Rfam assigns this 436-nucleotide part of an RNA from Drosophila willistoni to the family "Microsporidia small subunit ribosomal RNA". Taxonomically the source falls in Sophophora (Eukaryota, Protostomia, Brachycera, Drosophilinae). On this family, see Yusupov et al., Science 2001: "Crystal structure of the ribosome at 5.5 A resolution". Rfam links the family to the GO terms ribosome and structural constituent of ribosome. Its Rfam clan is "SSU clan".
[Rfam]
RNA sequence: GACCUUCUGGGACGUGUGCUUUUAUUAGACUAAAACCAAGCGAUCAAUUGAUCGUUAUAUUGGUUGAACUCUAGAUAACAUGCAGAUCGUAUGGUCUUGUACCGACGACAGAUCUUUCAAAUGUCUGCCCUAUCAACUUUUGAUGGUAGUAUCUAGGACUACCAUGGUUGCAACGGGUAACGGGGAAUCACGGUUCGAUUCCGGAGAGGGAGCCUGAGAAACGGCUACAACAUCUAAGGAAGGCAGCAGGCGCGUAAAUUACCCACUCCCAGCUCGGGGAGGUAGUGACGAAAAAUAACAAUACAGGACUCAUAUCCGAGGCCCUGUAAUUGGAAUGAGUACACUUUAAAUCCUUUAACAAGGACCAAUUGGAGGGCAAGUCUGGUGCCAGCAGCCGCGGUAAUUCCAGCUCCAAUAGAGUAUAUUAAAGUUGUUG
Numbered sequence: 001g002a003c004c005u006u007c008u009g010g011g012a013c014g015u016g017u018g019c020u021u022u023u024a025u026u027a028g029a030c031u032a033a034a035a036c037c038a039a040g041c042g043a044u045c046a047a048u049u050g051a052u053c054g055u056u057a058u059a060u061u062g063g064u065u066g067a068a069c070u071c072u073a074g075a076u077a078a079c080a081u082g083c084a085g086a087u088c089g090u091a092u093g094g095u096c097u098u099g100u101a102c103c104g105a106c107g108a109c110a111g112a113u114c115u116u117u118c119a120a121a122u123g124u125c126u127g128c129c130c131u132a133u134c135a136a137c138u139u140u141u142g143a144u145g146g147u148a149g150u151a152u153c154u155a156g157g158a159c160u161a162c163c164a165u166g167g168u169u170g171c172a173a174c175g176g177g178u179a180a181c182g183g184g185g186a187a188u189c190a191c192g193g194u195u196c197g198a199u200u201c202c203g204g205a206g207a208g209g210g211a212g213c214c215u216g217a218g219a220a221a222c223g224g225c226u227a228c229a230a231c232a233u234c235u236a237a238g239g240a241a242g243g244c245a246g247c248a249g250g251c252g253c254g255u256a257a258a259u260u261a262c263c264c265a266c267u268c269c270c271a272g273c274u275c276g277g278g279g280a281g282g283u284a285g286u287g288a289c290g291a292a293a294a295a296u297a298a299c300a301a302u303a304c305a306g307g308a309c310u311c312a313u314a315u316c317c318g319a320g321g322c323c324c325u326g327u328a329a330u331u332g333g334a335a336u337g338a339g340u341a342c343a344c345u346u347u348a349a350a351u352c353c354u355u356u357a358a359c360a361a362g363g364a365c366c367a368a369u370u371g372g373a374g375g376g377c378a379a380g381u382c383u384g385g386u387g388c389c390a391g392c393a394g395c396c397g398c399g400g401u402a403a404u405u406c407c408a409g410c411u412c413c414a415a416u417a418g419a420g421u422a423u424a425u426u427a428a429a430g431u432u433g434u435u436g
Stems, first nucleotide, its partner, number of pairs: 001114002004111002008038003019028002129177003136168003143165008181203004185196004209228001211226003231242001233240002259284001261283003267279004369415006382409004391398002